[Rfam]
RNA sequence: UGCAGCCCAGUCAAAUUCAGUCUCUGUCUCCUCCAUGGCGAGCACUGGCCAUCCGGCUGCUACAGCAAUAUCUGUAGUUCAUGGGCCCCAUGUCCCCUCCCAUGGGACCUUGGGGAUAAAAUCAUGCCACAGACAUUG
Numbered sequence: 001u002g003c004a005g006c007c008c009a010g011u012c013a014a015a016u017u018c019a020g021u022c023u024c025u026g027u028c029u030c031c032u033c034c035a036u037g038g039c040g041a042g043c044a045c046u047g048g049c050c051a052u053c054c055g056g057c058u059g060c061u062a063c064a065g066c067a068a069u070a071u072c073u074g075u076a077g078u079u080c081a082u083g084g085g086c087c088c089c090a091u092g093u094c095c096c097c098u099c100c101c102a103u104g105g106g107a108c109c110u111u112g113g114g115g116a117u118a119a120a121a122u123c124a125u126g127c128c129a130c131a132g133a134c135a136u137u138g
Stems, first nucleotide, its partner, number of pairs: 002060004018047004023042001025040004074130002077127002079124001086115005
This 138-nucleotide sequence from Coturnix japonica belongs to the Rfam family "Small nucleolar RNA SNORA5".
Lineage of the source: Eukaryota > Gnathostomata > Euteleostomi > Archelosauria > Coturnix.
Rfam's curators write: ACA5 is a member of the H/ACA class of snoRNA that guide the sites of modification of uridines to pseudouridines.
Rfam 15.1 lists 2,226 matches to the family in 629 species.
Rfam classes the family as an H/ACA-box small nucleolar RNA.
Gene Ontology terms of the family: RNA processing and nucleolus.